[Rfam]
RNA: msiK RNA
RNA sequence: GACCAUUUCUCCUUUACUCGGAUCGUCCGGCACGUUCCUGCCGGUGAAGGGACCACUCA
Numbered sequence: 001g002a003c004c005a006u007u008u009c010u011c012c013u014u015u016a017c018u019c020g021g022a023u024c025g026u027c028c029g030g031c032a033c034g035u036u037c038c039u040g041c042c043g044g045u046g047a048a049g050g051g052a053c054c055a056c057u058c059a
Stems, first nucleotide, its partner, number of pairs: 010051007027044006